Small nucleolar RNA snR191: a 263-nucleotide RNA sequence from Niveomyces insectorum. The organism belongs to Niveomyces insectorum, within Eukaryota. Pairs were carried over by alignment from the consensus structure, which was predicted with WAR. Gene Ontology terms of the family: RNA processing and nucleolus. It scores 51 bits against the family's covariance model. On this family, see Badis et al., RNA 2003: "A snoRNA that guides the two most conserved pseudouridine modifications within rRNA confers a growth advantage in yeast". The family is grouped with related families in Rfam's "SNORA74 clan".
Nucleotides: 263
Base pairs, nucleotide, nucleotide: 003074004073005072006071018061019060020059021058023056024055025054026053027052029044030043031042033040087169088168092129093128096126097125098124102116104114105113106112131155135151136150137149138148139147140146141145171257172256173255174254177251178250179249188242189241190240191239194235195234196233197232200221201220202219203215204214205213206212
Number, partner (000 for none) and nucleotide at each position: 001000c002000c003074c004073c005072a006071a007000c008000g009000u010000u011000c012000a013000a014000g015000u016000c017000a018061g019060g020059a021058a022000u023056c024055c025054u026053c027052u028000c029044g030043c031042a032000u033040a034000u035000u036000u037000c038000u039000u040033u041000u042031u043030g044029c045000g046000g047000c048000c049000a050000u051000g052027g053026g054025a055024g056023g057000u058021u059020u060019c061018c062000g063000u064000u065000a066000c067000a068000a069000c070000a071006u072005u073004g074003g075000g076000a077000g078000a079000u080000c081000a082000a083000a084000a085000a086000c087169c088168u089000a090000g091000u092129u093128c094000u095000c096126a097125c098124a099000a100000c101000c102116c103000u104114u105113g106112a107000u108000c109000u110000u111000u112106u113105c114104a115000u116102g117000u118000u119000c120000a121000u122000u123000g124098u125097g126096u127000u128093g129092a130000c131155a132000a133000u134000a135151g136150c137149u138148u139147c140146c141145g142000u143000c144000u145141u146140g147139g148138g149137a150136g151135u152000c153000u154000a155131u156000u157000c158000g159000a160000g161000a162000a163000a164000c165000u166000a167000a168088a169087g170000u171257u172256u173255g174254c175000a176000u177251c178250g179249c180000g181000a182000u183000g184000a185000g186000u187000u188242g189241a190240a191239a192000u193000c194235c195234g196233c197232c198000g199000u200221g201220u202219c203215g204214g205213c206212a207000u208000u209000u210000u211000u212206u213205g214204c215203u216000u217000u218000g219202g220201a221200c222000a223000c224000a225000u226000c227000u228000u229000g230000g231000c232197g233196g234195c235194g236000g237000c238000a239191u240190u241189u242188c243000u244000u245000a246000g247000u248000a249179g250178u251177g252000u253000u254174g255173c256172a257171g258000a259000c260000a261000u262000u263000u